[Rfam]
RNA sequence: AUCCAUCGCCCUACUAUUCGCAUCUCAUCACUUUUUGUCCAUUAGGAUGAGAUCGUUCAGUACGGCAAUGGAG
Dot-bracket structure: .(((((.(((.((((...((.((((((((.((...........))))))))))))...)))).))).))))).
Shown here is a 73-nucleotide sequence, a member of the family "mir-58 microRNA precursor family". The family has 5 seed sequences and 9 matches in Rfam 15.1. The base pairs follow the family's consensus structure, which was predicted with RNAalifold.